[Rfam]
RNA sequence: CCUUAGGAAGCGUUUUGUCCACGUAGGCAAAAAACGCUUCAUUGAGGACUCGUUUUAUGCCUACGUGGACAAAACGCUUCUUCAGGG
Numbered sequence: 001c002c003u004u005a006g007g008a009a010g011c012g013u014u015u016u017g018u019c020c021a022c023g024u025a026g027g028c029a030a031a032a033a034a035c036g037c038u039u040c041a042u043u044g045a046g047g048a049c050u051c052g053u054u055u056u057a058u059g060c061c062u063a064c065g066u067g068g069a070c071a072a073a074a075c076g077c078u079u080c081u082u083c084a085g086g087g
Base pairs, nucleotide, nucleotide: 001086002085003084005082006081007080008079009078010077011076012075013074014073015072016071017070018069019068020067021066023064024063025062026061027060028059029058031056032055033054034053035052036051040047
RNA: MIR7486 microRNA precursor family